Record summary:
Group II catalytic intron D1-D4-3: a 170-nucleotide RNA sequence from Photobacterium profundum. The literature on the family includes a 2001 paper in Trends Genet by Bonen and Vogel, "The ins and outs of group II introns". Pairs were carried over by alignment from the consensus structure. It scores 55 bits against the family's covariance model. Taxonomically the source falls in Photobacterium profundum (Bacteria, Pseudomonadati, Vibrionales, Vibrionaceae). Group II introns are found in rRNA, tRNA and mRNA of organelles in fungi, plants and protists, and also in mRNA in bacteria. Rfam links the family to the GO term Group II intron splicing.
RNA sequence: UCACUGGCUAACGGUGAGGUCUGAAGGAAGCCAUAGGAAGUUAGAGAUACACAACUAACCGUAACCUGUUUCGGCGGUGUUGGUGGGUAAGCGUCCGAAAUAGCGCGAAGCCCAAUACUUAGUCAGACCAAUGUCGUGUUUGAGGGUGGAAUUUCUAACAGGGAGCCAGC
Numbered sequence: 001u002c003a004c005u006g007g008c009u010a011a012c013g014g015u016g017a018g019g020u021c022u023g024a025a026g027g028a029a030g031c032c033a034u035a036g037g038a039a040g041u042u043a044g045a046g047a048u049a050c051a052c053a054a055c056u057a058a059c060c061g062u063a064a065c066c067u068g069u070u071u072c073g074g075c076g077g078u079g080u081u082g083g084u085g086g087g088u089a090a091g092c093g094u095c096c097g098a099a100a101u102a103g104c105g106c107g108a109a110g111c112c113c114a115a116u117a118c119u120u121a122g123u124c125a126g127a128c129c130a131a132u133g134u135c136g137u138g139u140u141u142g143a144g145g146g147u148g149g150a151a152u153u154u155c156u157a158a159c160a161g162g163g164a165g166c167c168a169g170c
Stems, first nucleotide, its partner, number of pairs: 001017006030170002042157006048150001050148003065145003074137003078133007085113004091106004